[Rfam]
This 169-nucleotide sequence from Kribbella caucasensis belongs to the Rfam family "c-di-AMP riboswitch aptamer (ydaO/yuaA leader)".
RNA sequence: GAUCAACUACCACCCACGCACCAGAGGGCGGAAGUGGGGAAACCACAGGUACCGCGGGCCGACGGGUUACUUCCGCCGGCCCUUGGGGCGAAGCCGCAACCCCCCGCGGCCGGGUAACACUUCCGAUCCGAGCCCGACAGCUAACCUCACAGGCGUGCAGGAAGGACUG
Dot-bracket structure: ..((..........................).)((((((....((......................................))(((.....((((........))))..((((..........))))...))).........))))))...................

About this RNA: A reference for the family is Barrick et al. (2004), "New RNA motifs suggest an expanded scope for riboswitches in bacterial genetic control", Proc Natl Acad Sci U S A.